[Rfam]
The record is a 97-nucleotide RNA sequence from Phrynocephalus forsythii, which matches "mir-146 microRNA precursor family" in Rfam. Rfam links the family to the GO terms miRNA-mediated post-transcriptional gene silencing and RISC complex. On this family, see Lagos-Quintana et al., Curr Biol 2002: "Identification of tissue-specific microRNAs from mouse". It scores 62 bits against the family's covariance model. The organism belongs to Phrynocephalus, within Eukaryota.
RNA sequence: UUGGCAGUUUCAAGCUCUGAGAACUGGUUUUCAUGGACUGGUUCCAUUUUGAUAUGUUCAGUCCAUCAUACUCAGUUCUCUAGCUUGGCUGUAUCUG
Number, nucleotide and partner (000 for none) at each position: 001u000002u000003g000004g000005c000006a000007g000008u000009u000010u088011c087012a000013a085014g084015c083016u000017c000018u000019g000020a079021g078022a077023a076024c075025u074026g073027g072028u000029u000030u000031u000032c000033a000034u000035g064036g063037a062038c061039u060040g059041g000042u000043u000044c000045c000046a000047u000048u000049u000050u000051g000052a000053u000054a000055u000056g000057u000058u000059c040060a039061g038062u037063c036064c035065a000066u000067c000068a000069u000070a000071c000072u027073c026074a025075g024076u023077u022078c021079u020080c000081u000082a000083g015084c014085u013086u000087g011088g010089c000090u000091g000092u000093a000094u000095c000096u000097g000